Record summary:
A member of the RNA family "MIR6288 microRNA precursor family" from Prunus armeniaca, 92 nucleotides long. Gene Ontology terms of the family: RISC complex and miRNA-mediated post-transcriptional gene silencing. The match comes from Rfam's covariance-model search (76 bits).
RNA sequence: CUAAAACUAGUCAUUUAUUAUUUUCUAAAUGAUCUUUAGUGAGUUAAAAUUUUCUAAGAACCAAUUUGAAAAUAACAAGUGACUAGUUUUAA
Dot-bracket structure: .(((((((((((((((.((((((((.((.((.(.(((((..............))))).).)).)).)))))))).))))))))))))))).